[Rfam]
RNA: c-di-GMP-I riboswitch aptamer
Organism: Ammoniphilus oxalaticus
RNA sequence: ACCAGCAAGGGGCAAACUAUUCGAAAGAUUGGGACGCAAAGCUACAAAUCUAAGGUAUUUUAUACUAAGAUGGUUGAGCUACCUGG
Numbered sequence: 001a002c003c004a005g006c007a008a009g010g011g012g013c014a015a016a017c018u019a020u021u022c023g024a025a026a027g028a029u030u031g032g033g034a035c036g037c038a039a040a041g042c043u044a045c046a047a048a049u050c051u052a053a054g055g056u057a058u059u060u061u062a063u064a065c066u067a068a069g070a071u072g073g074u075u076g077a078g079c080u081a082c083c084u085g086g
Stems, first nucleotide, its partner, number of pairs: 012037002017032003021028002040080004045076003048071003055065004